[Rfam]
RNA: Small nucleolar RNA Z155
RNA sequence: CGUUGAUGUGAUGAUAUGAUUUUCGGAAAGAUUUUUCGAGACGACUAAAUAUAUCAGACUACAAUUAUCUGAUCAGCG
Numbered sequence: 001c002g003u004u005g006a007u008g009u010g011a012u013g014a015u016a017u018g019a020u021u022u023u024c025g026g027a028a029a030g031a032u033u034u035u036u037c038g039a040g041a042c043g044a045c046u047a048a049a050u051a052u053a054u055c056a057g058a059c060u061a062c063a064a065u066u067a068u069c070u071g072a073u074c075a076g077c078g
Stems, first nucleotide, its partner, number of pairs: 001078006